[Rfam]
RNA sequence: AGCUUCGUAAGCAGCGCACUCCUCCUCCCAGCGCUCCUUACUUCGACUGGUAACACUCCUCCUCCCAGUUACCAGUCAGGAUCAAGAGCCCGGUGCACCUCCUCCCGCGCCGGGCUCUUUUC
Numbered sequence: 001a002g003c004u005u006c007g008u009a010a011g012c013a014g015c016g017c018a019c020u021c022c023u024c025c026u027c028c029c030a031g032c033g034c035u036c037c038u039u040a041c042u043u044c045g046a047c048u049g050g051u052a053a054c055a056c057u058c059c060u061c062c063u064c065c066c067a068g069u070u071a072c073c074a075g076u077c078a079g080g081a082u083c084a085a086g087a088g089c090c091c092g093g094u095g096c097a098c099c100u101c102c103u104c105c106c107g108c109g110c111c112g113g114g115c116u117c118u119u120u121u122c
Stems, first nucleotide, its partner, number of pairs: 007041003011037001013035005045077010086117011
Dot-bracket structure: ......(((.(.(((((.............))))).).)))...((((((((((.............))))))))))........(((((((((((..........))))))))))).....
RNA: Alphaproteobacterial ar14